[Rfam]
RNA sequence: GUUGAAGCGCCAUCUACAAAUGGAUAAGACUUCGGUCUUAGUUUAUACGAGUUCUUGAAAGUAAAAUAAAGGAGCAAUAACCAAUUUCUUGUUCUUUCAAGAAACUUGUUAUUGCUCCUUUAUU
Dot-bracket structure: .........((((......))))............................................(((((((((((((..(..(((((........)))))..)..)))))))))))))...
This 124-nucleotide RNA sequence from Itea chinensis belongs to the Rfam family "Plastid-psbA-1 3UTR RNA". The family's RNA type in Rfam is cis-regulatory element. Clan: Plastid-psbA 3UTR RNA clan. Rfam's curators write: Plastid psbA-1 is a non-coding RNA (ncRNA) present in plastids. It was identified in inverted repeat sequences in the 3 prime untranslate region (3UTR) of photosystem II quinone-binding protein (psbA). The base pairs follow the family's consensus structure, which was predicted with LocARNA.